This 189-nucleotide sequence from Hymenochirus boettgeri belongs to the Rfam family "MIR1144 microRNA precursor family". Pairs were carried over by alignment from the consensus structure, which was predicted with RNAalifold. Rfam links the family to the GO terms miRNA-mediated post-transcriptional gene silencing and RISC complex. The source organism's lineage runs through Eukaryota, Deuterostomia, Gnathostomata, Pipidae and Hymenochirus.

RNA sequence: GGAGAGGAGGCAGUAAGUGACGGGGAUUGUGGGAGAGGAGGCGGAAGGUGACGGGGAUUGUGGGAGAGGAGGUGGAAGGUGACAGGGUGAUUCACAUCACCCUGUUCCCCUUCCACCUCCUCUCCCACAAUCCCCGUCACCUUCCGCCUCCUCUCCCACAAUCCCCGUCACUUACUGCCUCCUCUCCCC
Numbered sequence: 001g002g003a004g005a006g007g008a009g010g011c012a013g014u015a016a017g018u019g020a021c022g023g024g025g026a027u028u029g030u031g032g033g034a035g036a037g038g039a040g041g042c043g044g045a046a047g048g049u050g051a052c053g054g055g056g057a058u059u060g061u062g063g064g065a066g067a068g069g070a071g072g073u074g075g076a077a078g079g080u081g082a083c084a085g086g087g088u089g090a091u092u093c094a095c096a097u098c099a100c101c102c103u104g105u106u107c108c109c110c111u112u113c114c115a116c117c118u119c120c121u122c123u124c125c126c127a128c129a130a131u132c133c134c135c136g137u138c139a140c141c142u143u144c145c146g147c148c149u150c151c152u153c154u155c156c157c158a159c160a161a162u163c164c165c166c167g168u169c170a171c172u173u174a175c176u177g178c179c180u181c182c183u184c185u186c187c188c189c
Base pairs, nucleotide, nucleotide: 001187002186004184005183007182014174015173016172017171018170019169020168021167022166028160029159030158033155034154036152037151044144045143047141048140050138051137052136054134055133056132059129060128061127062126063125064124065123066122067121068120069119070118071117073115074114075113077112078111079110081108083104086101087100088099089098
Dot-bracket structure: ((.((.(......(((((((((.....(((..((.((......((.((.(((.(((..(((((((((((((.(((.(((.(.(..((((........))))..)...).)))))).)))))))))))))..))).))).)).))......)).))..))).....))))))))).......))).))..